[Rfam]
RNA sequence: GAGUCUAUCUCAAGUGCAAGUGCAAAGGUGUCAAACCUACGCGCGAAACGAAAGUAACUGUCAAGAUGGGUAACCUGCAUUGACAUCCAGCUACCAAGCUGCGAUAGAGCAUUUGGGAUAGGACCCGAAAGGUGGUGAACUAUACCUGAGUAGGGUGAAGUCAGAGGAAACUCUGAUGGAGGCUCGUAGCGAUACUGACGUGCAAAUCGUUCGUCAAACUUGGGUAUAGGGGCGAAAGACUAAUCGAACCAUCUAGUAGCUGGUU
Dot-bracket structure: ....(((((((((((((..(((...((((.....))))...)))...((....))....(((((...((....))....))))).(((((((....))))).))....)))))))))))))..((.(...((((((...((((((((((((.((((...(((((((....)))))))....))))...((((.((.((........))))))))..).))))))))))).((.......))......))))))......).))..